Metazoan signal recognition particle RNA: a 291-nucleotide RNA from Eschrichtius robustus.
RNA sequence: GCCGGGCGCGGUGGCGCGCGCCUGUAGUCCCAGCUACACGGGAGGCUGAGGCAGGAGGAUCGCUUGAGCCCAGGAGUUCUGGGCUGUAGUGCGCUAUGCCGAUCGGGUGUCCGCACUAAGUUCGGCAUCAAUAUGGUGACCUCCCGGGAGCGGGGGACCACCAGGUUGCCUAAGGAGGGGUGAACCGGCCCAGGUCGGAAACGGAGCAGGUCAUAAUUUUCAUGUUUCUAAUUGCGGCCUUUUCUUUUUCACUUGGAGAUGUCCCUUUAACAUUUCUUGUAAAGGUGGUUU
Numbered sequence: 001g002c003c004g005g006g007c008g009c010g011g012u013g014g015c016g017c018g019c020g021c022c023u024g025u026a027g028u029c030c031c032a033g034c035u036a037c038a039c040g041g042g043a044g045g046c047u048g049a050g051g052c053a054g055g056a057g058g059a060u061c062g063c064u065u066g067a068g069c070c071c072a073g074g075a076g077u078u079c080u081g082g083g084c085u086g087u088a089g090u091g092c093g094c095u096a097u098g099c100c101g102a103u104c105g106g107g108u109g110u111c112c113g114c115a116c117u118a119a120g121u122u123c124g125g126c127a128u129c130a131a132u133a134u135g136g137u138g139a140c141c142u143c144c145c146g147g148g149a150g151c152g153g154g155g156g157a158c159c160a161c162c163a164g165g166u167u168g169c170c171u172a173a174g175g176a177g178g179g180g181u182g183a184a185c186c187g188g189c190c191c192a193g194g195u196c197g198g199a200a201a202c203g204g205a206g207c208a209g210g211u212c213a214u215a216a217u218u219u220u221c222a223u224g225u226u227u228c229u230a231a232u233u234g235c236g237g238c239c240u241u242u243u244c245u246u247u248u249u250c251a252c253u254u255g256g257a258g259a260u261g262u263c264c265c266u267u268u269a270a271c272a273u274u275u276c277u278u279g280u281a282a283a284g285g286u287g288g289u290u291u
Stems, first nucleotide, its partner, number of pairs: 001046003004023007028043003056291002059289007066280001071279004081273001083271001085269002088266002091263001093262002097258001099256001104255006111237002114234002117231001119229002124226005129168004134163005141156006169175002177220005187212004195204003
It scores 130 bits against the family's covariance model. Clan: SRP clan. It is annotated as a non-coding RNA gene. On this family, see Wild et al., Curr Opin Struct Biol 2002: "Towards the structure of the mammalian signal recognition particle". Rfam 15.1 lists 383,523 matches to the family in 1,221 species.